[Rfam]
RNA sequence: CCAGGUCCCCCGUGUGGCGUUACCUCACCCAACUCCCCCAGGGCCGGAAGGCAGCAAGGGUAAGUGGGCUCUGUCGGGUGCGCGGGGGGCCCUUUUC
Numbered sequence: 001c002c003a004g005g006u007c008c009c010c011c012g013u014g015u016g017g018c019g020u021u022a023c024c025u026c027a028c029c030c031a032a033c034u035c036c037c038c039c040a041g042g043g044c045c046g047g048a049a050g051g052c053a054g055c056a057a058g059g060g061u062a063a064g065u066g067g068g069c070u071c072u073g074u075c076g077g078g079u080g081c082g083c084g085g086g087g088g089g090c091c092c093u094u095u096u097c
Stems, first nucleotide, its partner, number of pairs: 004091011015078001018076002021073002024068005035060003043052003
Shown here is a 97-nucleotide RNA sequence from Enemella dayhoffiae, a member of the family "Bacterial small signal recognition particle RNA". The base pairs follow the family's consensus structure, which is taken from published work. A search with the family's covariance model found it, with a score of 62 bits.